Overview
Shown here is a 73-nucleotide RNA from Pseudoruegeria aquimaris, a member of the family "Singlet oxygen resistance RNA X". A reference for the family is Peng et al. (2016), "Regulation of a polyamine transporter by the conserved 3' UTR-derived sRNA SorX confers resistance to singlet oxygen and organic hydroperoxides in Rhodobacter sphaeroides", RNA Biol. Rfam describes the family as follows. SorX (RSs2461)like SorY is a singlet oxygen induced sRNA that counteracts oxidative stress by targeting mRNA for a transporter in Rhodobacter. It also has an impact on resistance against organic hydroperoxides. It targets SD sequence of potA mRNA via an aSD sequence. Rfam 15.1 lists 528 matches to the family in 356 species. A search with the family's covariance model found it, with a score of 72 bits. The pairing is the family consensus, mapped onto this sequence.

RNA sequence: UCCCCUCUCAGAACGGGGCAAUGUUCUGAAACCUCCCUGUUGGACUGGCCCGGCCCCGCGCCGGGCCUUUUUU
Numbered sequence: 001u002c003c004c005c006u007c008u009c010a011g012a013a014c015g016g017g018g019c020a021a022u023g024u025u026c027u028g029a030a031a032c033c034u035c036c037c038u039g040u041u042g043g044a045c046u047g048g049c050c051c052g053g054c055c056c057c058g059c060g061c062c063g064g065g066c067c068u069u070u071u072u073u
Stems, first nucleotide, its partner, number of pairs: 008029007047067008